[Rfam]
Annotation: Y RNA: a 105-nucleotide sequence from Austrofundulus limnaeus. On this family, see Mosig et al., Theory Biosci 2007: "Evolution of the vertebrate Y RNA cluster".

RNA sequence: GGUUGGUCCGAUGGUGGUGACUUUUCAAUUGAUUGCUACAGUGAGUUACAGAACCUCUAAGUUUCUUCUCUCCCCUUCCUCACCGCCGGCCUUGACUAGCCUUUU
Numbered sequence: 001g002g003u004u005g006g007u008c009c010g011a012u013g014g015u016g017g018u019g020a021c022u023u024u025u026c027a028a029u030u031g032a033u034u035g036c037u038a039c040a041g042u043g044a045g046u047u048a049c050a051g052a053a054c055c056u057c058u059a060a061g062u063u064u065c066u067u068c069u070c071u072c073c074c075c076u077u078c079c080u081c082a083c084c085g086c087c088g089g090c091c092u093u094g095a096c097u098a099g100c101c102u103u104u105u
Stems, first nucleotide, its partner, number of pairs: 001101008010093002015088001016084005027067002031063004
NCBI's taxonomy places the organism under Eukaryota, Opisthokonta, Eumetazoa, Euacanthomorphacea, Austrofundulus.